[Rfam]
RNA sequence: CGGUAAGGCUUCCUAUCCGUUAUCGAUGGAGGCACUCGGCUAUGCUGUGGGUAAUGAGACGCAUUACCUUAGACACGUUUGUUGUCAGGAGUAUGGUGUGAGGGUGGGUUAGAUGCCCA
Numbered sequence: 001c002g003g004u005a006a007g008g009c010u011u012c013c014u015a016u017c018c019g020u021u022a023u024c025g026a027u028g029g030a031g032g033c034a035c036u037c038g039g040c041u042a043u044g045c046u047g048u049g050g051g052u053a054a055u056g057a058g059a060c061g062c063a064u065u066a067c068c069u070u071a072g073a074c075a076c077g078u079u080u081g082u083u084g085u086c087a088g089g090a091g092u093a094u095g096g097u098g099u100g101a102g103g104g105u106g107g108g109u110u111a112g113a114u115g116c117c118c119a
Stems, first nucleotide, its partner, number of pairs: 001019003008033006035102004039097008049069008072086004105119005